[Rfam]
Rfam assigns this 122-nucleotide RNA from Apolygus lucorum to the family "DUF3800-I RNA".
Nucleotides: 122
Base pairs, nucleotide, nucleotide: 007034009032010031011030012028013027014026015025016024037094038093039092040091041090042089049085050084051083052062053061054060066082067081068080069079070078071077095112096111097110098109099108100107101106
Number, partner (000 for none) and nucleotide at each position: 001000u002000a003000u004000c005000u006000u007034u008000g009032c010031g011030g012028g013027u014026g015025a016024g017000a018000a019000u020000a021000u022000a023000a024016c025015u026014c027013a028012c029000a030011c031010u032009g033000a034007g035000u036000a037094c038093a039092a040091a041090a042089g043000a044000a045000a046000c047000a048000a049085g050084c051083g052062a053061u054060a055000g056000a057000u058000g059000a060054u061053a062052u063000u064000a065000a066082g067081c068080g069079u070078a071077u072000a073000g074000u075000a076000a077071g078070u079069a080068c081067g082066u083051c084050g085049c086000c087000a088000u089042c090041u091040u092039u093038u094037g095112g096111g097110a098109a099108u100107c101106u102000u103000a104000a105000c106101g107100g108099g109098u110097u111096c112095u113000u114000u115000u116000u117000u118000u119000a120000u121000u122000u
Rfam describes the family as follows. Actinobacteria, Firmicutes, Fusobacteria, Proteobacteria (1 example), Tenericutes (2 examples).